Overview
Shown here is a 215-nucleotide sequence from Lihuaxuella thermophila, a member of the family "T-box leader". A search with the family's covariance model found it, with a score of 99 bits. For this family Rfam cites "The GA motif: an RNA element common to bacterial antitermination systems, rRNA, and eukaryotic RNAs" (Winkler et al., RNA, 2001). Uncharged tRNA acts as the effector for transcription antitermination of genes in the T-box leader family. T-boxes are found upstream of many aminoacyl-tRNA synthetase genes and some amino acid biosynthetic genes usually in Gram-positive bacteria. The organism belongs to Lihuaxuella, within Bacteria.
[Rfam]
RNA sequence: UGCCCGGUAAUGACGGAGUGAAGAGGCCUGUGGAAACGAUCAGAGAGCGGGAUUUGACAGCUGGGAGAUCCCGCCGUGGAAGCAGGCUGAACCCGCCUCCCGAACUUCCCGUGAAAAGCGGGACGGUCGCUGGCCGUUAUUCAGAUGGAGCGGACAUGAUCACAGUGUCAUGUCAAUGAAGGUGGUACCGCGAAAGAAAGCCUUUCGUCCUUCUC
Numbered sequence: 001u002g003c004c005c006g007g008u009a010a011u012g013a014c015g016g017a018g019u020g021a022a023g024a025g026g027c028c029u030g031u032g033g034a035a036a037c038g039a040u041c042a043g044a045g046a047g048c049g050g051g052a053u054u055u056g057a058c059a060g061c062u063g064g065g066a067g068a069u070c071c072c073g074c075c076g077u078g079g080a081a082g083c084a085g086g087c088u089g090a091a092c093c094c095g096c097c098u099c100c101c102g103a104a105c106u107u108c109c110c111g112u113g114a115a116a117a118g119c120g121g122g123a124c125g126g127u128c129g130c131u132g133g134c135c136g137u138u139a140u141u142c143a144g145a146u147g148g149a150g151c152g153g154a155c156a157u158g159a160u161c162a163c164a165g166u167g168u169c170a171u172g173u174c175a176a177u178g179a180a181g182g183u184g185g186u187a188c189c190g191c192g193a194a195a196g197a198a199a200g201c202c203u204u205u206c207g208u209c210c211u212u213c214u215c
Stems, first nucleotide, its partner, number of pairs: 007105002015100004025088006036077003047074008108122005124136003153174007179212004190208007
Dot-bracket structure: ......((......((((......((((((.....(((........((((((((............))))))))))).....))))))........))))...))..(((((.....))))).(((.......)))................(((((((........)))))))....((((.......(((((((.....)))))))))))...